[Rfam]
Small nucleolar RNA ACA64: a 124-nucleotide RNA sequence from Sinocyclocheilus anshuiensis. Taxonomically the source falls in Sinocyclocheilus (Eukaryota, Euteleostomi, Neopterygii, Otophysi). The family's consensus secondary structure was predicted with WAR. Gene Ontology terms of the family: nucleolus and RNA processing. On this family, see Schattner et al., RNA 2006: "A computational screen for mammalian pseudouridylation guide H/ACA RNAs".

RNA sequence: ACAAUCUGAAAAUUAUCUUUGGCAUUUGUUGCUUUGGAUAAGAUAAUUGUGCAGACAGCAAUAAGGUACGUUUUGCUUAUCGCCAACUCUGUUGUUGUGCAAUAAAACCAAUGUGCCAACACUG
Numbered sequence: 001a002c003a004a005u006c007u008g009a010a011a012a013u014u015a016u017c018u019u020u021g022g023c024a025u026u027u028g029u030u031g032c033u034u035u036g037g038a039u040a041a042g043a044u045a046a047u048u049g050u051g052c053a054g055a056c057a058g059c060a061a062u063a064a065g066g067u068a069c070g071u072u073u074u075g076c077u078u079a080u081c082g083c084c085a086a087c088u089c090u091g092u093u094g095u096u097g098u099g100c101a102a103u104a105a106a107a108c109c110a111a112u113g114u115g116c117c118a119a120c121a122c123u124g
Stems, first nucleotide, its partner, number of pairs: 006049001008047001010044001013041004021033004065117001067115005077105004085096003